RNA sequence: AAGUGCUACAGCUCUUUUAGAAUUUGUCUAGCAGGUUUUCCGGUUCGUCGGAAAGCCACC
Numbered sequence: 001a002a003g004u005g006c007u008a009c010a011g012c013u014c015u016u017u018u019a020g021a022a023u024u025u026g027u028c029u030a031g032c033a034g035g036u037u038u039u040c041c042g043g044u045u046c047g048u049c050g051g052a053a054a055g056c057c058a059c060c
Base pairs, nucleotide, nucleotide: 034057035056036055037054038053039052040051041050042049043048
Rfam assigns this 60-nucleotide RNA from Muntiacus reevesi to the family "U7 small nuclear RNA". Rfam's curators write: Animal histone pre-mRNAs are spliced by a different mechanism than nuclear pre-mRNAs and self-splicing introns. This processing involves the U7 snRNP, which contains only one RNA species: U7. NCBI's taxonomy places the organism under Eukaryota, Craniata, Gnathostomata, Theria, Muntiacus. It scores 69 bits against the family's covariance model.